The record is a 72-nucleotide RNA from Manduca sexta, which matches "mir-193 microRNA precursor family" in Rfam. On this family, see Zhou et al., Genomics 2009: "In silico detection and characteristics of novel microRNA genes in the Equus caballus genome using an integrated ab initio and comparative genomic approach". The source organism's lineage runs through Eukaryota, Protostomia, Arthropoda, Obtectomera and Manduca.

[Rfam]
RNA sequence: AACUUCGGCGAGGGUCUUGGCGGUCUGGUCGGUUUAUAGUUCCUACUGGCCUGCUAAGUCCCAAGCCGCGGU
Numbered sequence: 001a002a003c004u005u006c007g008g009c010g011a012g013g014g015u016c017u018u019g020g021c022g023g024u025c026u027g028g029u030c031g032g033u034u035u036a037u038a039g040u041u042c043c044u045a046c047u048g049g050c051c052u053g054c055u056a057a058g059u060c061c062c063a064a065g066c067c068g069c070g071g072u
Stems, first nucleotide, its partner, number of pairs: 003070001005068001007066001009065001012062003016058005022052002025049001027047002031043001